[Rfam]
Group II catalytic intron D1-D4-7: a 151-nucleotide RNA sequence from Geoalkalibacter subterraneus. Group II introns are found in rRNA, tRNA and mRNA of organelles in fungi, plants and protists, and also in mRNA in bacteria. It scores 104 bits against the family's covariance model. The literature on the family includes a 2001 paper in Trends Genet by Bonen and Vogel, "The ins and outs of group II introns". Its family is annotated with Group II intron splicing in the Gene Ontology.
RNA sequence: CCAGGAAUGUCACUUCCUGAGCCUACCAGGGCAUGCAGGAUCAGUAAUGAACCUGUGUGAAGCCCCUGGGACAAGUGUACCCGGAUGGAAACAUGGACCAAACGCCGUGAGGCUAUUAGGGACUACUGCUAGCAGUAGAGCGGUUACGGGG
Numbered sequence: 001c002c003a004g005g006a007a008u009g010u011c012a013c014u015u016c017c018u019g020a021g022c023c024u025a026c027c028a029g030g031g032c033a034u035g036c037a038g039g040a041u042c043a044g045u046a047a048u049g050a051a052c053c054u055g056u057g058u059g060a061a062g063c064c065c066c067u068g069g070g071a072c073a074a075g076u077g078u079a080c081c082c083g084g085a086u087g088g089a090a091a092c093a094u095g096g097a098c099c100a101a102a103c104g105c106c107g108u109g110a111g112g113c114u115a116u117u118a119g120g121g122a123c124u125a126c127u128g129c130u131a132g133c134a135g136u137a138g139a140g141c142g143g144u145u146a147c148g149g150g151g
Stems, first nucleotide, its partner, number of pairs: 002019006027068005032059008041050003085094003098120002101117001105112002125144006